RNA: Xanthine riboswitch aptamer (NMT1 RNA)
Organism: Lampropedia cohaerens
RNA sequence: GCCGAGAGUAGAAGCGUUCAGUUGGCCAUCCUGCCGUGGGUGGUGCCAGCGGGUCAUUGCUCUUGAA
Numbered sequence: 001g002c003c004g005a006g007a008g009u010a011g012a013a014g015c016g017u018u019c020a021g022u023u024g025g026c027c028a029u030c031c032u033g034c035c036g037u038g039g040g041u042g043g044u045g046c047c048a049g050c051g052g053g054u055c056a057u058u059g060c061u062c063u064u065g066a067a
Stems, first nucleotide, its partner, number of pairs: 005063006015052001019053001021050006